About this RNA:
This 148-nucleotide sequence from Pseudomonas aeruginosa belongs to the Rfam family "Group II catalytic intron D1-D4-7". The family has 244 seed sequences and 1,296 matches in Rfam 15.1. Taxonomically the source falls in Pseudomonas aeruginosa (Bacteria, Pseudomonadati, Pseudomonadaceae, Pseudomonas). Rfam links the family to the GO term Group II intron splicing. The sequence is in the family's curated seed alignment. On this family, see Bonen and Vogel, Trends Genet 2001: "The ins and outs of group II introns".
RNA sequence: CUCGUUGUGCGACCAACGGUAGCCUAGGGAAACGUGCGUUGCUGGUAACGGCAGGGUGCGAAGCUUUCCCGACAACGUAGCCCCCGCGAGGGUGCGAAUUCACCGUGAGGUGAACCGCAGAGGGUCGGAGUAGCACCGACCCAAGGCG
Number, nucleotide and partner (000 for none) at each position: 001c000002u019003c018004g017005u016006u015007g014008u000009g000010c000011g000012a000013c000014c007015a006016a005017c004018g003019g002020u000021a000022g000023c000024c000025u000026a000027g000028g069029g068030a067031a066032a065033c060034g059035u058036g057037c056038g000039u054040u053041g052042c051043u050044g049045g000046u000047a000048a000049c044050g043051g042052c041053a040054g039055g000056g037057u036058g035059c034060g033061a000062a000063g000064c000065u032066u031067u030068c029069c028070c000071g000072a000073c000074a000075a000076c000077g000078u000079a000080g000081c000082c092083c091084c090085c000086g000087c000088g000089a000090g084091g083092g082093u119094g118095c117096g116097a000098a000099u000100u000101c000102a000103c110104c109105g000106u000107g000108a000109g104110g103111u000112g000113a000114a000115c000116c096117g095118c094119a093120g000121a000122g000123g141124g140125u139126c138127g137128g136129a000130g000131u000132a000133g000134c000135a000136c128137c127138g126139a125140c124141c123142c000143a000144a000145g000146g000147c000148g000